[Rfam]
RNA sequence: GCGAGACACGUUGUCCGACAACCGAUAGCGACCGAUAAACUGGGUCCCGGACCGUGCCGGGCGCAGCUCCCGGACGGUCCGCCAAUGAUCAGCCAGCAGCCGCUGCAACCCCCAGGGAG
Number, nucleotide and partner (000 for none) at each position: 001g000002c000003g000004a000005g000006a000007c000008a000009c000010g000011u000012u000013g000014u000015c000016c000017g000018a000019c000020a000021a000022c000023c000024g000025a000026u000027a000028g000029c000030g000031a000032c000033c000034g000035a000036u000037a000038a000039a000040c000041u000042g000043g000044g000045u000046c000047c000048c000049g080050g079051a078052c077053c076054g075055u000056g000057c073058c072059g071060g070061g069062c000063g000064c000065a000066g000067c000068u000069c061070c060071c059072g058073g057074a000075c054076g053077g052078u051079c050080c049081g000082c000083c000084a000085a000086u000087g000088a000089u000090c000091a000092g000093c000094c105095a104096g103097c102098a000099g000100c000101c000102g097103c096104u095105g094106c000107a000108a000109c000110c000111c000112c000113c000114a000115g000116g000117g000118a000119g000
RNA: Streptomyces-metK RNA